[Rfam]
Nucleotides: 070
Stems, first nucleotide, its partner, number of pairs: 003070004008065002011062003015058009028047004
Number, partner (000 for none) and nucleotide at each position: 001000g002000c003070c004069c005068c006067c007000c008065g009064u010000g011062c012061c013060u014000a015058c016057u017056g018055a019054g020053c021052u022051g023050a024000u025000u026000u027000g028047c029046a030045g031044u032000u033000g034000c035000u036000u037000u038000g039000g040000u041000u042000a043000a044031a045030c046029u047028g048000g049000c050023u051022c052021a053020g054019u055018u056017c057016a058015g059000c060013a061012g062011g063000a064009a065008c066000a067006g068005g069004g070003g

Shown here is a 70-nucleotide sequence from Ceyx cyanopectus, a member of the family "mir-24 microRNA precursor family". On this family, see Lagos-Quintana et al., Science 2001: "Identification of novel genes coding for small expressed RNAs". Rfam's curators write: This family represents the microRNA (miRNA) mir-24 family. miRNAs are transcribed as ~70nt precursors (modelled here) and subsequently processed by the Dicer enzyme to give a ~22nt product. In this case the mature sequence comes from the 3' arm of the precursor. The extents of the hairpin precursors are not generally known and are estimated based on hairpin prediction. The products are thought to have regulatory roles through complementarity to mRNA. The involvement of Dicer in miRNA processing suggests a relationship with the phenomenon of RNA interference. miRNAs are numbered based on the sequence of the mature RNA. miR-24 has been identified in human and mouse.